[Rfam]
RNA sequence: CGGGGACUGCAGGCGCCCCGUCAGACGUCCUUUCGUCCAAGCACUGC
Numbered sequence: 001c002g003g004g005g006a007c008u009g010c011a012g013g014c015g016c017c018c019c020g021u022c023a024g025a026c027g028u029c030c031u032u033u034c035g036u037c038c039a040a041g042c043a044c045u046g047c
Stems, first nucleotide, its partner, number of pairs: 001020005009047004024037004
chrB-b RNA: a 47-nucleotide RNA. Pairs were carried over by alignment from the consensus structure, which is taken from published work.